[Rfam]
Rfam assigns this 77-nucleotide RNA from Chinchilla lanigera to the family "Small nucleolar RNA SNORD81". The literature on the family includes a 1998 paper in Mol Cell Biol by Smith and Steitz, "Classification of gas5 as a multi-small-nucleolar-RNA (snoRNA) host gene and a member of the 5'-terminal oligopyrimidine gene family reveals common features of snoRNA host genes". The match comes from Rfam's covariance-model search (73 bits). The family is grouped with related families in Rfam's "SNORD26 clan".
RNA sequence: GUGGAAUCAUGAUGAUCUCACCUCAGCUUGAACCCUCUCACUGAUUACUGGAUGAUGAGCAAAAAUCCGAAAUUCGU
Dot-bracket structure: (((((.(...............................................................).)))))